Shown here is an 81-nucleotide sequence from Neomonachus schauinslandi, a member of the family "Small nucleolar RNA SNORD115". The match comes from Rfam's covariance-model search (94 bits).
RNA sequence: GGGUCAAUGAUGAGAAUUCUUAAUGUCUUGAAGAGAUGUGAUGACCUAAAAAUCAUCCUCAAUAGGAUUACGCUGAGGCCC
Numbered sequence: 001g002g003g004u005c006a007a008u009g010a011u012g013a014g015a016a017u018u019c020u021u022a023a024u025g026u027c028u029u030g031a032a033g034a035g036a037u038g039u040g041a042u043g044a045c046c047u048a049a050a051a052a053u054c055a056u057c058c059u060c061a062a063u064a065g066g067a068u069u070a071c072g073c074u075g076a077g078g079c080c081c
Base pairs, nucleotide, nucleotide: 001081002080003079004078005075006074008072009071